[Rfam]
RNA: c-di-AMP riboswitch aptamer (ydaO/yuaA leader)
Organism: Streptomyces coelicolor
RNA sequence: UCGCGUCAAGCGCCGAAGGCAGGAGCGGGGGACCCAAGGUAAGUGCCGCACCGGGCAGUUGAGCCGGAGCGGCUAGGGGUGGAGCCGAGUUCCGCGAGGAACCCGGCCGGGCAACUCAACCGGCCCGAACCCGACAGCUCACCUCGCAGGCGUCGGUGAGGGGAUCA
Dot-bracket structure: ..........((((..........((((((....((...........................................))(.(.......(((.........)))..((((..........))))...).).........)))))).))))...............